A member of the RNA family "RNase MRP" from Ustilaginoidea virens, 458 nucleotides long. The organism belongs to Ustilaginoidea, within Eukaryota. The family's consensus secondary structure is taken from published work. Rfam links the family to the GO terms ribonuclease MRP complex, rRNA processing and ribonuclease MRP activity.

[Rfam]
RNA sequence: CCCUCGGUCAACAAAUCGCCAUUCGAAGCUGUCAAACAGGGACGUUCAGCCUUGCGCUAAGCGUCUCAUCCUUCGGGAUACUAUGCUUUGGGAGAAAGUCCCCGGACGUCUCCAUUUUGGAGCUUGCGGAAACGCGCCGCCAUAGAAGCACUGCGGCUGACCUUUUGCGCCUUGGCCCUCUUCGCGGACAUCCGCCCUUCUCGUCGCUACAUCUGUUCUUCGAGUUCGAUUGGAAACCUGCUCUGCGUCUCUUGACCCUUUGGAUGAAGAUAUGAGUCCGCGUUGGGAUGAUGUGGUCGGGACCUUCUAAUACCGGGCGAGCGUUCAGAUGACGGGUAGCCGUGUGAUGACGUGAGUUGUGGCUUCGGGUGCUGAGGACUAGUUGUCGAAGUCGAUAGGUAUGCGAUUGCUCGGCUUUCUGGCCGAGUUACUCGAUGGGGCUUAUUCUUGAGGCGAGG
Numbered sequence: 001c002c003c004u005c006g007g008u009c010a011a012c013a014a015a016u017c018g019c020c021a022u023u024c025g026a027a028g029c030u031g032u033c034a035a036a037c038a039g040g041g042a043c044g045u046u047c048a049g050c051c052u053u054g055c056g057c058u059a060a061g062c063g064u065c066u067c068a069u070c071c072u073u074c075g076g077g078a079u080a081c082u083a084u085g086c087u088u089u090g091g092g093a094g095a096a097a098g099u100c101c102c103c104g105g106a107c108g109u110c111u112c113c114a115u116u117u118u119g120g121a122g123c124u125u126g127c128g129g130a131a132a133c134g135c136g137c138c139g140c141c142a143u144a145g146a147a148g149c150a151c152u153g154c155g156g157c158u159g160a161c162c163u164u165u166u167g168c169g170c171c172u173u174g175g176c177c178c179u180c181u182u183c184g185c186g187g188a189c190a191u192c193c194g195c196c197c198u199u200c201u202c203g204u205c206g207c208u209a210c211a212u213c214u215g216u217u218c219u220u221c222g223a224g225u226u227c228g229a230u231u232g233g234a235a236a237c238c239u240g241c242u243c244u245g246c247g248u249c250u251c252u253u254g255a256c257c258c259u260u261u262g263g264a265u266g267a268a269g270a271u272a273u274g275a276g277u278c279c280g281c282g283u284u285g286g287g288a289u290g291a292u293g294u295g296g297u298c299g300g301g302a303c304c305u306u307c308u309a310a311u312a313c314c315g316g317g318c319g320a321g322c323g324u325u326c327a328g329a330u331g332a333c334g335g336g337u338a339g340c341c342g343u344g345u346g347a348u349g350a351c352g353u354g355a356g357u358u359g360u361g362g363c364u365u366c367g368g369g370u371g372c373u374g375a376g377g378a379c380u381a382g383u384u385g386u387c388g389a390a391g392u393c394g395a396u397a398g399g400u401a402u403g404c405g406a407u408u409g410c411u412c413g414g415c416u417u418u419c420u421g422g423c424c425g426a427g428u429u430a431c432u433c434g435a436u437g438g439g440g441c442u443u444a445u446u447c448u449u450g451a452g453g454c455g456a457g458g
Base pairs, nucleotide, nucleotide: 002458003457004456005455006454008451009450010449011448014408015407016406017405018404019403023092024090025089026088027087028086029085039067040066041065042064043063044062045061096443097442098441100440101439102438103437125136126135127134128133235380241376242375243374245372246371250369251368252367263358264357265356410427411426412425413424414423415422